[Rfam]
RNA sequence: CCUGCCGAAGUUUCCCUCAGGAUAGCAAAAACUUAAACGCAGUUUUAUGAGGUAAAGCGAAUGAUUAGAGGCCUUGGGGACGAAAUGUCCUUAACCUAUUCUCAAACUUUAAAUAUGUAAGACGACCUGUUUGCUUAAUUGAAGCAGGUCAUUGAAUGUGAGUUUUUAGUGGGCCAUUUUUGGUAAGCAGAACUGGCGAUGCGGGAUGAACCGAACGAGAAGUUAAGGUGCCGGAAUACACGCUCAUCAGACACCACAAAAGGUGUUAGUUCAUCUAGACAGCAGGACGGUGGCCAUGGAAGUCGGAAUCCGCUAAGGAGUGUGUAACAACUCACCUGCCGAAUGAACUAGCCCUGAAAAUGGAUGGCGCUUAAGCGUGUUACCCAUACUUCUCCGUUAUUGUAAAAGCGAAGCAAUAACGAGUAGGCAGGCGUGGAGGUUUUUAUAAACUGUUAAGAAGCUCUUGGAGUGAUCCGGAGUGAAACAGCCUCUAGUGCAGAU
Numbered sequence: 001c002c003u004g005c006c007g008a009a010g011u012u013u014c015c016c017u018c019a020g021g022a023u024a025g026c027a028a029a030a031a032c033u034u035a036a037a038c039g040c041a042g043u044u045u046u047a048u049g050a051g052g053u054a055a056a057g058c059g060a061a062u063g064a065u066u067a068g069a070g071g072c073c074u075u076g077g078g079g080a081c082g083a084a085a086u087g088u089c090c091u092u093a094a095c096c097u098a099u100u101c102u103c104a105a106a107c108u109u110u111a112a113a114u115a116u117g118u119a120a121g122a123c124g125a126c127c128u129g130u131u132u133g134c135u136u137a138a139u140u141g142a143a144g145c146a147g148g149u150c151a152u153u154g155a156a157u158g159u160g161a162g163u164u165u166u167u168a169g170u171g172g173g174c175c176a177u178u179u180u181u182g183g184u185a186a187g188c189a190g191a192a193c194u195g196g197c198g199a200u201g202c203g204g205g206a207u208g209a210a211c212c213g214a215a216c217g218a219g220a221a222g223u224u225a226a227g228g229u230g231c232c233g234g235a236a237u238a239c240a241c242g243c244u245c246a247u248c249a250g251a252c253a254c255c256a257c258a259a260a261a262g263g264u265g266u267u268a269g270u271u272c273a274u275c276u277a278g279a280c281a282g283c284a285g286g287a288c289g290g291u292g293g294c295c296a297u298g299g300a301a302g303u304c305g306g307a308a309u310c311c312g313c314u315a316a317g318g319a320g321u322g323u324g325u326a327a328c329a330a331c332u333c334a335c336c337u338g339c340c341g342a343a344u345g346a347a348c349u350a351g352c353c354c355u356g357a358a359a360a361u362g363g364a365u366g367g368c369g370c371u372u373a374a375g376c377g378u379g380u381u382a383c384c385c386a387u388a389c390u391u392c393u394c395c396g397u398u399a400u401u402g403u404a405a406a407a408g409c410g411a412a413g414c415a416a417u418a419a420c421g422a423g424u425a426g427g428c429a430g431g432c433g434u435g436g437a438g439g440u441u442u443u444u445a446u447a448a449a450c451u452g453u454u455a456a457g458a459a460g461c462u463c464u465u466g467g468a469g470u471g472a473u474c475c476g477g478a479g480u481g482a483a484a485c486a487g488c489c490u491c492u493a494g495u496g497c498a499g500a501u
Stems, first nucleotide, its partner, number of pairs: 001431006011024001013022003027167007043122007055110001056108002062104003067099001069097003074094006081087001124150009173197004178192005202213003217394005223388001227384003236381001238380001241377003261355003265352010282339005288312003294306002313317001318333001322331002395421009432496001434493008443484001460480002466475003

Record summary
Eukaryotic large subunit ribosomal RNA: a 501-nucleotide part of an RNA from Mucor lusitanicus. Its family is annotated with ribosome and structural constituent of ribosome in the Gene Ontology. Lineage of the source: Eukaryota > Mucoromycota > Mucoromycotina > Mucorales > Mucor lusitanicus.